[Rfam]
RNA sequence: UGGGAGAAUCUGUAAAGCUCAGGAGGGAUAGCACCGUGAUACUGAUGAUUAUAUGUUCAUAGUUGUAUACGUACUUGGCGCUAUCUAUCUUGAGCUUCAUGGCUUCUUCAU
Numbered sequence: 001u002g003g004g005a006g007a008a009u010c011u012g013u014a015a016a017g018c019u020c021a022g023g024a025g026g027g028a029u030a031g032c033a034c035c036g037u038g039a040u041a042c043u044g045a046u047g048a049u050u051a052u053a054u055g056u057u058c059a060u061a062g063u064u065g066u067a068u069a070c071g072u073a074c075u076u077g078g079c080g081c082u083a084u085c086u087a088u089c090u091u092g093a094g095c096u097u098c099a100u101g102g103c104u105u106c107u108u109c110a111u
Stems, first nucleotide, its partner, number of pairs: 010102001016096009026086007034078002

MIR390 microRNA precursor family: a 111-nucleotide sequence from Glycine max. It scores 90 bits against the family's covariance model. The source organism's lineage runs through Eukaryota, Spermatophyta, Gunneridae, Glycine and Glycine subgen. Soja. Pairs were carried over by alignment from the consensus structure, which was predicted with WAR.